[Rfam]
RNA sequence: AGCCUAAUGCCACGUCACCAGUAGCAGAAUGCUAUGACUUGUGAUGCUAUGAUUAGGCUGAUAUCAAAUUCUUGCUUAAUGUUUCGCAUAUUGAUAGGAAUCUGUGGAUUAUAUUUGUAUUUGAUCCAUGGAGCCGUUUCUUGCGAUUACAUUU
Dot-bracket structure: .((((((((...((((((.(((.(((...)))....))).))))))...).))))))).........................(((((........((...(((.(((((............))))).)))..))......)))))........